[Rfam]
RNA sequence: UAACCGCAACCGGGAGGUUGCGCUGAACCCACAGGAGUCAGCAGAGGUCAUAGUACGCAAGUACGGGACGCCGGAAAGCGGAAGGAC
Number, nucleotide and partner (000 for none) at each position: 001u025002a024003a000004c000005c022006g021007c020008a019009a018010c017011c016012g000013g000014g000015a000016g011017g010018u009019u008020g007021c006022g005023c000024u002025g001026a000027a000028c000029c000030c000031a000032c000033a000034g000035g000036a000037g000038u045039c044040a000041g000042c000043a000044g039045a038046g000047g087048u086049c085050a000051u000052a000053g000054u000055a000056c080057g079058c078059a000060a000061g000062u000063a000064c074065g000066g000067g000068a000069c000070g000071c000072c000073g000074g064075a000076a000077a000078g058079c057080g056081g000082a000083a000084g000085g049086a048087c047